[Rfam]
Rfam assigns this 139-nucleotide RNA from Miscanthus lutarioriparius to the family "Small nucleolar RNA Z247". Rfam links the family to the GO terms RNA processing and nucleolus. The literature on the family includes a 2003 paper in Nucleic Acids Res by Chen et al., "The high diversity of snoRNAs in plants: identification and comparative study of 120 snoRNA genes from Oryza sativa". The source organism's lineage runs through Eukaryota, Euphyllophyta, Poales, Panicoideae and Miscanthus. The family has 8 seed sequences and 7,071 matches in Rfam 15.1.
RNA sequence: AAGCUAGAGGAUGAAGAGCUCGUCUUAUACAUCCUCACCGAGCUUGAUCUGGAGUACAACCCCAUCGUUUCUACCGUCGCCGCCAGGGUUGAGCCCAUCACCAUUUGUGAGUUAUACACCCAGCUCAUUUCUUUUCAGC
Numbered sequence: 001a002a003g004c005u006a007g008a009g010g011a012u013g014a015a016g017a018g019c020u021c022g023u024c025u026u027a028u029a030c031a032u033c034c035u036c037a038c039c040g041a042g043c044u045u046g047a048u049c050u051g052g053a054g055u056a057c058a059a060c061c062c063c064a065u066c067g068u069u070u071c072u073a074c075c076g077u078c079g080c081c082g083c084c085a086g087g088g089u090u091g092a093g094c095c096c097a098u099c100a101c102c103a104u105u106u107g108u109g110a111g112u113u114a115u116a117c118a119c120c121c122a123g124c125u126c127a128u129u130u131c132u133u134u135u136c137a138g139c
Stems, first nucleotide, its partner, number of pairs: 004138002007135002088108002091105002